[Rfam]
Nucleotides: 078
Stems, first nucleotide, its partner, number of pairs: 001078005012026004028066003032061001035060003042052001
Number, partner (000 for none) and nucleotide at each position: 001078c002077u003076c004075u005074g006000g007000a008000g009000a010000g011000u012026g013025u014024c015023a016000c017000g018000a019000u020000a021000g022000g023015u024014g025013a026012c027000c028066a029065c030064c031000a032061a033000a034000g035060g036059g037058g038000a039000a040000a041000g042052c043000c044000u045000u046000g047000u048000a049000u050000a051000a052042g053000g054000u055000a056000a057000a058037c059036u060035u061032u062000c063000a064030g065029g066028u067000u068000u069000c070000a071000g072000g073000a074005c075004a076003g077002a078001g